[Rfam]
Shown here is a 102-nucleotide RNA sequence from Clostridium carboxidivorans, a member of the family "Purine riboswitch aptamer". A search with the family's covariance model found it, with a score of 74 bits. The family's consensus secondary structure is taken from published work.
RNA sequence: ACGUAAGAUGAAUAAAACGUCCAUAUAAUCCUGAUAAUAAGGUUCGGGAGUUUCUACUAGGGAACCGUUAAUUUCCUUUCUAUGGGUUAAUCUGAAGAAUAU
Numbered sequence: 001a002c003g004u005a006a007g008a009u010g011a012a013u014a015a016a017a018c019g020u021c022c023a024u025a026u027a028a029u030c031c032u033g034a035u036a037a038u039a040a041g042g043u044u045c046g047g048g049a050g051u052u053u054c055u056a057c058u059a060g061g062g063a064a065c066c067g068u069u070a071a072u073u074u075c076c077u078u079u080c081u082a083u084g085g086g087u088u089a090a091u092c093u094g095a096a097g098a099a100u101a102u
Base pairs, nucleotide, nucleotide: 019087020086021085022084023083024082025081029049030048031047032046033045034044059077060076061075062074063073064072

Overview: Riboswitches are metabolite binding domains within certain messenger RNAs that serve as precision sensors for their corresponding targets.